[Rfam]
RNA sequence: UCCACCGCGAGGUGGAAUCUGAAGGAAGUCUGCGGCAAACCUCCGGCCUGAGGAACACGAACUUCAUAUGAGGCUAACGAUAGCUGGAUGAGUCUGCCAUACAAGACGAAGUCCAUGUUGCCAAAGGCUAUCGGGAGUAAAUGAAGCAGGUCGAUGGAGGGAAAGACAACGUU
Numbered sequence: 001u002c003c004a005c006c007g008c009g010a011g012g013u014g015g016a017a018u019c020u021g022a023a024g025g026a027a028g029u030c031u032g033c034g035g036c037a038a039a040c041c042u043c044c045g046g047c048c049u050g051a052g053g054a055a056c057a058c059g060a061a062c063u064u065c066a067u068a069u070g071a072g073g074c075u076a077a078c079g080a081u082a083g084c085u086g087g088a089u090g091a092g093u094c095u096g097c098c099a100u101a102c103a104a105g106a107c108g109a110a111g112u113c114c115a116u117g118u119u120g121c122c123a124a125a126g127g128c129u130a131u132c133g134g135g136a137g138u139a140a141a142u143g144a145a146g147c148a149g150g151u152c153g154a155u156g157g158a159g160g161g162a163a164a165g166a167c168a169a170c171g172u173u
Base pairs, nucleotide, nucleotide: 001016002015003014004013005012006011028173030171036165040160041159042158043157044156045155046151047150048149049148050147062146063145064144065143066142067141073138074137075136079132080131081130082129083128084127086114087113088112089111092107093106094105095104
Overview: Rfam assigns this 173-nucleotide RNA sequence from Brevibacillus panacihumi to the family "Group II catalytic intron D1-D4-3". Pairs were carried over by alignment from the consensus structure. NCBI's taxonomy places the organism under Bacteria, Bacillati, Bacillota, Bacilli, Brevibacillus panacihumi.